[Rfam]
RNA sequence: UGCUCAUCCAGAGAGGUGGAGGGAAAGGGCCCGAUGAAACCCGGCAACCCGUCUUCUCGUCGGCAAGGACAGGAGACAUGGUGCCAAUUCCUUCAGGACGUUUUGUCCUGGCAGAUGAGAG
Numbered sequence: 001u002g003c004u005c006a007u008c009c010a011g012a013g014a015g016g017u018g019g020a021g022g023g024a025a026a027g028g029g030c031c032c033g034a035u036g037a038a039a040c041c042c043g044g045c046a047a048c049c050c051g052u053c054u055u056c057u058c059g060u061c062g063g064c065a066a067g068g069a070c071a072g073g074a075g076a077c078a079u080g081g082u083g084c085c086a087a088u089u090c091c092u093u094c095a096g097g098a099c100g101u102u103u104u105g106u107c108c109u110g111g112c113a114g115a116u117g118a119g120a121g
Stems, first nucleotide, its partner, number of pairs: 001121001003119006013042001015041003021032003026093004043085004048081002051077007089113001094110006
RNA: SAM riboswitch aptamer (S box leader)